[Rfam]
RNA sequence: UAGAUCAGUGAUGACUACUGUUGGUGUAUGAGUCAUAUACGAUGAAUACAUGUCUGAAAUUCUGAGGUCCAA
Numbered sequence: 001u002a003g004a005u006c007a008g009u010g011a012u013g014a015c016u017a018c019u020g021u022u023g024g025u026g027u028a029u030g031a032g033u034c035a036u037a038u039a040c041g042a043u044g045a046a047u048a049c050a051u052g053u054c055u056g057a058a059a060u061u062c063u064g065a066g067g068u069c070c071a072a
Stems, first nucleotide, its partner, number of pairs: 003069004

Source information: The record is a 72-nucleotide sequence, which matches "Small nucleolar RNA SNORD113/SNORD114 family" in Rfam. Gene Ontology terms of the family: RNA processing and nucleolus. The family's RNA type in Rfam is C/D-box small nucleolar RNA. On this family, see Cavaille et al., Hum Mol Genet 2002: "Identification of tandemly-repeated C/D snoRNA genes at the imprinted human 14q32 domain reminiscent of those at the Prader-Willi/Angelman syndrome region".